Rfam assigns this 45-nucleotide sequence from Agrobacterium fabrum to the family "ctRNA". The organism belongs to Agrobacterium fabrum, within Bacteria. This family represents a group of ctRNAs (or counter-transcribed RNAs) from p42d and related plasmids. ctRNAs are small, highly structured, antisense sequences which are involved in negative regulation. The base pairs follow the family's consensus structure, which is taken from published work. Rfam 15.1 lists 245 matches to the family in 136 species. Rfam classes the family as an antisense RNA. It is one of the family's seed sequences.
[Rfam]
RNA sequence: AGAAAGGCUUCCGUGCGGCAACGUUCGGGGGCUUUUUUCUUUUGU
Number, nucleotide and partner (000 for none) at each position: 001a000002g000003a000004a000005a034006g033007g032008c031009u030010u029011c028012c027013g000014u000015g025016c023017g022018g000019c000020a000021a000022c017023g016024u000025u015026c000027g012028g011029g010030g009031g008032c007033u006034u005035u000036u000037u000038u000039c000040u000041u000042u000043u000044g000045u000